[Rfam]
Nucleotides: 101
Base pairs, nucleotide, nucleotide: 001101002100003099004098005097006096007095008094013042014041015040016039017038021031022030023029025076026075027074028073043068044067045066046065048064049063050060052058053057072093077090078089079088080087081086
Number, partner (000 for none) and nucleotide at each position: 001101u002100u003099c004098u005097u006096a007095u008094c009000a010000a011000g012000a013042g014041a015040g016039g017038u018000g019000g020000a021031g022030g023029g024000a025076c026075a027074g028073g029023c030022c031021c032000g033000a034000a035000g036000a037000a038017a039016c040015c041014u042013c043068g044067g045066c046065a047000a048064c049063a050060g051000g052058u053057u054000u055000a056000a057053a058052a059000a060050c061000a062000c063049u064048g065046u066045g067044c068043c069000a070000a071000c072093u073028c074027c075026u076025g077090c078089a079088g080087a081086c082000a083000a084000a085000u086081g087080u088079c089078u090077g091000g092000a093072a094008g095007a096006u097005a098004a099003g100002a101001a